[Rfam]
RNA sequence: CCGAAUCCGUUGGGGUGCCCCGAGAGGGGCUGAGAGGCCGCGUGCCAACCCAUCGAACCUGAUCCGGGCAAUACCGGCGGAGGGAACGGAGUCCGACAAGCG
Number, nucleotide and partner (000 for none) at each position: 001c000002c000003g000004a000005a000006u090007c089008c088009g087010u086011u052012g051013g050014g049015g000016u000017g030018c029019c028020c027021c026022g000023a000024g000025a000026g021027g020028g019029g018030c017031u000032g000033a000034g000035a000036g000037g046038c000039c044040g000041c000042g000043u000044g039045c000046c037047a000048a000049c014050c013051c012052a011053u000054c000055g000056a000057a000058c083059c082060u081061g000062a000063u000064c077065c076066g075067g074068g000069c000070a000071a000072u000073a000074c067075c066076g065077g064078c000079g000080g000081a060082g059083g058084g000085a000086a010087c009088g008089g007090a006091g000092u000093c000094c000095g000096a000097c000098a000099a000100g000101c000102g000
Record summary: Rfam assigns this 102-nucleotide RNA from Halovulum marinum to the family "TPP riboswitch aptamer (THI element)". It scores 74 bits against the family's covariance model. Lineage of the source: Bacteria > Pseudomonadati > Pseudomonadota > Rhodobacterales > Halovulum.